The family of this 48-nucleotide RNA sequence from Streptomyces triculaminicus is "raiA-hairpin RNA". Rfam classes the family as a small RNA. The source organism's lineage runs through Bacteria, Bacillati, Kitasatosporales, Streptomycetaceae and Streptomyces. A search with the family's covariance model found it, with a score of 54 bits. Pairs were carried over by alignment from the consensus structure, which is taken from published work.
[Rfam]
RNA sequence: CGCCUAGUCGGUGGCUCCGGAGAACCCCGGAGCCUGUUGCAAGAGGGA
Numbered sequence: 001c002g003c004c005u006a007g008u009c010g011g012u013g014g015c016u017c018c019g020g021a022g023a024a025c026c027c028c029g030g031a032g033c034c035u036g037u038u039g040c041a042a043g044a045g046g047g048a
Stems, first nucleotide, its partner, number of pairs: 013034008